[Rfam]
RNA: Small nucleolar RNA snR48
Organism: Scheffersomyces stipitis
RNA sequence: AUAUCAGGAUGAACAUUUUAGUAUAAGUAUGUUUUUUCUGGCAUCUCUAAUGUUAGAGCUUUUCAGCUCGAUGAAUACAACCUUUGACUAUUAUCUGAUG
Numbered sequence: 001a002u003a004u005c006a007g008g009a010u011g012a013a014c015a016u017u018u019u020a021g022u023a024u025a026a027g028u029a030u031g032u033u034u035u036u037u038c039u040g041g042c043a044u045c046u047c048u049a050a051u052g053u054u055a056g057a058g059c060u061u062u063u064c065a066g067c068u069c070g071a072u073g074a075a076u077a078c079a080a081c082c083u084u085u086g087a088c089u090a091u092u093a094u095c096u097g098a099u100g
Stems, first nucleotide, its partner, number of pairs: 057068004